[Rfam]
RNA sequence: UCAGAUGGCCGGAUGGCCGCUCGAUUGCGAGGCUGUGCUGAGGCGGGCUUGCCCGUUGAAGCGCAUAGUGCGCAGCCGGGAGGAAAGUCCGGGCUCCACGGAAACACGGUGACGGAUAACAUCCGCCGGGGGUGACCCCAGGGAUAGCGCCACAGAAAUGAAACCGCCAACCCCGGUUCGCCGGGCGGUAAGGUUGAAAUGGUGCGGUAAGAGCGCACCGCAGGUCCGGCAACGGAACUGGCAAGGCAAGCCCCACCGGGAGCAAGACCAAAUAGGGAUGGCAGAGUGACCCGUUUCCGGGCCGCCGUCCGGGUAGGUCGCGUGAGGCAGUCGGUAACGGCUGUCCCAGAGGAAUGGUCAUCCCUUUGCUUCGGCAAAGGACAAAACCCGGCUUAUAGGCCGUCUGACGCA
Numbered sequence: 001u002c003a004g005a006u007g008g009c010c011g012g013a014u015g016g017c018c019g020c021u022c023g024a025u026u027g028c029g030a031g032g033c034u035g036u037g038c039u040g041a042g043g044c045g046g047g048c049u050u051g052c053c054c055g056u057u058g059a060a061g062c063g064c065a066u067a068g069u070g071c072g073c074a075g076c077c078g079g080g081a082g083g084a085a086a087g088u089c090c091g092g093g094c095u096c097c098a099c100g101g102a103a104a105c106a107c108g109g110u111g112a113c114g115g116a117u118a119a120c121a122u123c124c125g126c127c128g129g130g131g132g133u134g135a136c137c138c139c140a141g142g143g144a145u146a147g148c149g150c151c152a153c154a155g156a157a158a159u160g161a162a163a164c165c166g167c168c169a170a171c172c173c174c175g176g177u178u179c180g181c182c183g184g185g186c187g188g189u190a191a192g193g194u195u196g197a198a199a200u201g202g203u204g205c206g207g208u209a210a211g212a213g214c215g216c217a218c219c220g221c222a223g224g225u226c227c228g229g230c231a232a233c234g235g236a237a238c239u240g241g242c243a244a245g246g247c248a249a250g251c252c253c254c255a256c257c258g259g260g261a262g263c264a265a266g267a268c269c270a271a272a273u274a275g276g277g278a279u280g281g282c283a284g285a286g287u288g289a290c291c292c293g294u295u296u297c298c299g300g301g302c303c304g305c306c307g308u309c310c311g312g313g314u315a316g317g318u319c320g321c322g323u324g325a326g327g328c329a330g331u332c333g334g335u336a337a338c339g340g341c342u343g344u345c346c347c348a349g350a351g352g353a354a355u356g357g358u359c360a361u362c363c364c365u366u367u368g369c370u371u372c373g374g375c376a377a378a379g380g381a382c383a384a385a386a387c388c389c390g391g392c393u394u395a396u397a398g399g400c401c402g403u404c405u406g407a408c409g410c411a
Stems, first nucleotide, its partner, number of pairs: 001407010011396001012362007020080004025075004085394003089391005094262004103296002107258005113125004127141001128139004142253002147251002149247003164193002166189003172185005201219006220242001221240003225236004266319004276310006288303001290301003326345008